[Rfam]
RNA: Archaeal signal recognition particle RNA
RNA sequence: UGCCGGACUUGGCCGGGGGGUUAGGCGUCCCCUGUUACCCGAAGUCUAGACGCGGGGGCGACAGCCCGGAGAGGGCACCCAGACUUCUGGCAGGCCCUGUGGAAUCCAUGAAGCUCUGUCCCUCUGGAUCGGAGGUUCUGGCCUUCAGCCUCAAAGGAGGCUGGGGGCCAGAUCUGCCAGGAAAACCCGCCAGGCCCGGAAGGGAGCAACGGUAUCCUGGACUACCGAUGCUGGAGGGGUGCGGGGUAGAGAGGAAGCAGGGGGCACCUACCAGGACAUCUGGUCCGAUCCGGGUGUGUCCGGCU
Numbered sequence: 001u002g003c004c005g006g007a008c009u010u011g012g013c014c015g016g017g018g019g020g021u022u023a024g025g026c027g028u029c030c031c032c033u034g035u036u037a038c039c040c041g042a043a044g045u046c047u048a049g050a051c052g053c054g055g056g057g058g059c060g061a062c063a064g065c066c067c068g069g070a071g072a073g074g075g076c077a078c079c080c081a082g083a084c085u086u087c088u089g090g091c092a093g094g095c096c097c098u099g100u101g102g103a104a105u106c107c108a109u110g111a112a113g114c115u116c117u118g119u120c121c122c123u124c125u126g127g128a129u130c131g132g133a134g135g136u137u138c139u140g141g142c143c144u145u146c147a148g149c150c151u152c153a154a155a156g157g158a159g160g161c162u163g164g165g166g167g168c169c170a171g172a173u174c175u176g177c178c179a180g181g182a183a184a185a186c187c188c189g190c191c192a193g194g195c196c197c198g199g200a201a202g203g204g205a206g207c208a209a210c211g212g213u214a215u216c217c218u219g220g221a222c223u224a225c226c227g228a229u230g231c232u233g234g235a236g237g238g239g240u241g242c243g244g245g246g247u248a249g250a251g252a253g254g255a256a257g258c259a260g261g262g263g264g265c266a267c268c269u270a271c272c273a274g275g276a277c278a279u280c281u282g283g284u285c286c287g288a289u290c291c292g293g294g295u296g297u298g299u300c301c302g303g304c305u
Stems, first nucleotide, its partner, number of pairs: 002304007010061001012059003015033007038056004064295007073286004080282003085276006092269003095262006105252002113247007120238008128229005133223002135174001137172016177220006187212003195204003